[Rfam]
RNA: Mammalian CPEB3 ribozyme
RNA sequence: UAGUCCUGUUGGGGGGCAAUACCAGAGUCACUCAUGUUGAAGCCCUCUCAGAUUCUCUGAAUCUGAGACUGCUGCU
Numbered sequence: 001u002a003g004u005c006c007u008g009u010u011g012g013g014g015g016g017c018a019a020u021a022c023c024a025g026a027g028u029c030a031c032u033c034a035u036g037u038u039g040a041a042g043c044c045c046u047c048u049c050a051g052a053u054u055c056u057c058u059g060a061a062u063c064u065g066a067g068a069c070u071g072c073u074g075c076u
Stems, first nucleotide, its partner, number of pairs: 014045004021076001023074003027070001028040003049065007